[Rfam]
RNA sequence: UGUCUCCUCCAUCCUCCUUCUUUAGGUGGAACUUGGCGCAAUCAGAAUCGAUUGCGCUUUUUUUU
Numbered sequence: 001u002g003u004c005u006c007c008u009c010c011a012u013c014c015u016c017c018u019u020c021u022u023u024a025g026g027u028g029g030a031a032c033u034u035g036g037c038g039c040a041a042u043c044a045g046a047a048u049c050g051a052u053u054g055c056g057c058u059u060u061u062u063u064u065u
Base pairs, nucleotide, nucleotide: 008030009029010028011027012026013025035058036057037056038055039054040053041052042051

This 65-nucleotide RNA from Paludibacterium denitrificans belongs to the Rfam family "Betaproteobacteria toxic small RNA". The base pairs follow the family's consensus structure, which was predicted with WAR. Rfam describes the family as follows. Overexpression in amino aid rich medium attenuates growth, suggesting role in repressing amino acid intake and metabolism.